[Rfam]
RNA sequence: UCUAGCAGAUAGGCUUUCUGUUUGUGUUAUGUUUCUUCUAAAAAUGUAAGACGAACAAAAAGUUUGUCUGAUAGCUG
Numbered sequence: 001u002c003u004a005g006c007a008g009a010u011a012g013g014c015u016u017u018c019u020g021u022u023u024g025u026g027u028u029a030u031g032u033u034u035c036u037u038c039u040a041a042a043a044a045u046g047u048a049a050g051a052c053g054a055a056c057a058a059a060a061a062g063u064u065u066g067u068c069u070g071a072u073a074g075c076u077g
Base pairs, nucleotide, nucleotide: 003073004072006070008068009067011065012064013063014062015061016060017059020056023053024052027049028048029047030046031045032044

Source information
Shown here is a 77-nucleotide sequence from Oncorhynchus kisutch, a member of the family "mir-208 microRNA precursor family". A reference for the family is Linsen et al. (2010), "Small RNA expression and strain specificity in the rat", BMC Genomics. Lineage of the source: Eukaryota > Eumetazoa > Bilateria > Craniata > Oncorhynchus. Rfam links the family to the GO terms RISC complex and miRNA-mediated post-transcriptional gene silencing.